This 129-nucleotide sequence from Cnephaeus nilssonii belongs to the Rfam family "Small Cajal body specific RNA 24".
The literature on the family includes a 2002 paper in EMBO J by Darzacq et al., "Cajal body-specific small nuclear RNAs: a novel class of 2'-O-methylation and pseudouridylation guide RNAs".
Rfam's curators write: scaRNAs are a specific class of small nuclear RNAs which localise to the Cajal bodies and guide the modification of RNA polymerase II transcribed spliceosomal RNAs U1, U2, U4, U5 and U12. ACA12 belongs to the H/ACA box class of guide RNAs as it has the predicted hairpin-hinge-hairpin-tail structure,the conserved H/ACA-box motifs and is found associated with GAR1.
Rfam 15.1 lists 689 matches to the family in 502 species.
It is annotated as a small Cajal body RNA.
The family's consensus secondary structure was predicted with RNAfold.
Its Rfam clan is "SCARNA3 clan".
RNA sequence: UGGACAUUUACUUUUAUUCAGUUUCGUCUUAAGGUAAAAAAAAACCUCUUUGCAAAUGUCCUUGAAAAAUGUAGUUUUCUUUUCAUCCUUUGCAAGUAAAAAGGGUGGAUCAUUCCACUAUUGACAUAU
Numbered sequence: 001u002g003g004a005c006a007u008u009u010a011c012u013u014u015u016a017u018u019c020a021g022u023u024u025c026g027u028c029u030u031a032a033g034g035u036a037a038a039a040a041a042a043a044a045c046c047u048c049u050u051u052g053c054a055a056a057u058g059u060c061c062u063u064g065a066a067a068a069a070u071g072u073a074g075u076u077u078u079c080u081u082u083u084c085a086u087c088c089u090u091u092g093c094a095a096g097u098a099a100a101a102a103g104g105g106u107g108g109a110u111c112a113u114u115c116c117a118c119u120a121u122u123g124a125c126a127u128a129u
Stems, first nucleotide, its partner, number of pairs: 002061008011052001020047002022043002024040001027037001072120003088103004
Dot-bracket structure: .((((((((.(........(((((..(.........)..).))..))....).))))))))..........(((.............((((........))))..............))).........